The record is an 84-nucleotide RNA sequence from Alligator mississippiensis, which matches "Mammalian CPEB3 ribozyme" in Rfam. The organism belongs to Alligator, within Eukaryota.

RNA sequence: UCAUUUAUUAAGGGGGCCAUAGCAGAAGUGUUCACAUUGUGACCCCUGCCAAGUUAAUACUUUCUAAUACCUAUGAAUUCUGCU
Numbered sequence: 001u002c003a004u005u006u007a008u009u010a011a012g013g014g015g016g017c018c019a020u021a022g023c024a025g026a027a028g029u030g031u032u033c034a035c036a037u038u039g040u041g042a043c044c045c046c047u048g049c050c051a052a053g054u055u056a057a058u059a060c061u062u063u064c065u066a067a068u069a070c071c072u073a074u075g076a077a078u079u080c081u082g083c084u
Stems, first nucleotide, its partner, number of pairs: 013046004018041001021084007028040003051072001053070002